[Rfam]
RNA sequence: CGGGUGCUGGACCUGCGGCACCACAGACGCGGCUGCCGUGCUGCACCUGUGACGCCAGGGCACAGAGGAAGUGGCUAUUUCUACGCUCAGUGCUCAGAACAGUGGGCACUAAGAAUGGUUUGUAGCCUGACAUUC
Number, nucleotide and partner (000 for none) at each position: 001c000002g000003g000004g061005u060006g000007c058008u057009g056010g055011a000012c000013c000014u000015g000016c000017g000018g000019c000020a000021c000022c000023a050024c049025a048026g047027a000028c000029g000030c000031g000032g000033c000034u000035g000036c000037c000038g000039u000040g000041c000042u000043g000044c000045a000046c000047c026048u025049g024050u023051g000052a000053c000054g000055c010056c009057a008058g007059g000060g005061c004062a000063c000064a000065g000066a000067g000068g000069a000070a000071g000072u000073g127074g126075c125076u000077a000078u000079u000080u000081c118082u117083a116084c000085g000086c113087u112088c000089a000090g000091u108092g107093c106094u105095c104096a103097g000098a000099a000100c000101a000102g000103u096104g095105g094106g093107c092108a091109c000110u000111a000112a087113g086114a000115a000116u083117g082118g081119u000120u000121u000122g000123u000124a000125g075126c074127c073128u000129g000130a000131c000132a000133u000134u000135c000
RNA: Small nucleolar RNA SNORA43